The record is a 93-nucleotide RNA sequence from Aminomonas paucivorans, which matches "Selenocysteine transfer RNA" in Rfam.
RNA sequence: GGAGGCGAGUCGUGGCUGGUGCUGCGUCCGGGCUUCAAACCCGGUGGGAGUCGGUUCAGCCGGCUCCGGUGGGUUCGAUUCCCACACGCCUCC
Numbered sequence: 001g002g003a004g005g006c007g008a009g010u011c012g013u014g015g016c017u018g019g020u021g022c023u024g025c026g027u028c029c030g031g032g033c034u035u036c037a038a039a040c041c042c043g044g045u046g047g048g049a050g051u052c053g054g055u056u057c058a059g060c061c062g063g064c065u066c067c068g069g070u071g072g073g074u075u076c077g078a079u080u081c082c083c084a085c086a087c088g089c090c091u092c093c
Stems, first nucleotide, its partner, number of pairs: 001093007009085001011026006028044005047067005070084004

Background
The family has 109 seed sequences and 4,211 matches in Rfam 15.1. Its Rfam clan is "tRNA clan". It scores 82 bits against the family's covariance model.